[Rfam]
RNA sequence: AACCUUGAAAUACACAGGAGUGUGUAUGGGGUUUUAGUUUAGAAAAGCUGAGUAUGAGACUAGGGUAGAUUGAGAAUGAGUUGAGAUGAGCUGAGUUGAGACAAAACGUUUAUUCAUUCUACCCAAAAGACGCUGUUCUUUUGGGUUUGUUUC
Numbered sequence: 001a002a003c004c005u006u007g008a009a010a011u012a013c014a015c016a017g018g019a020g021u022g023u024g025u026a027u028g029g030g031g032u033u034u035u036a037g038u039u040u041a042g043a044a045a046a047g048c049u050g051a052g053u054a055u056g057a058g059a060c061u062a063g064g065g066u067a068g069a070u071u072g073a074g075a076a077u078g079a080g081u082u083g084a085g086a087u088g089a090g091c092u093g094a095g096u097u098g099a100g101a102c103a104a105a106a107c108g109u110u111u112a113u114u115c116a117u118u119c120u121a122c123c124c125a126a127a128a129g130a131c132g133c134u135g136u137u138c139u140u141u142u143g144g145g146u147u148u149g150u151u152u153c
Stems, first nucleotide, its partner, number of pairs: 002032003010027006063124006072117001074114002076111001078110002080107003
Shown here is a 153-nucleotide RNA sequence from Bacillus sp. BT1B_CT2, a member of the family "Bacillus tryptophan operon leader". For this family Rfam cites "Role of RNA structure in transcription attenuation in Bacillus subtilis: the trpEDCFBA operon as a model system" (Babitzke et al., Methods Enzymol, 2003). The organism belongs to Bacillus, within Bacteria. Gene Ontology term of the family: regulation of gene expression.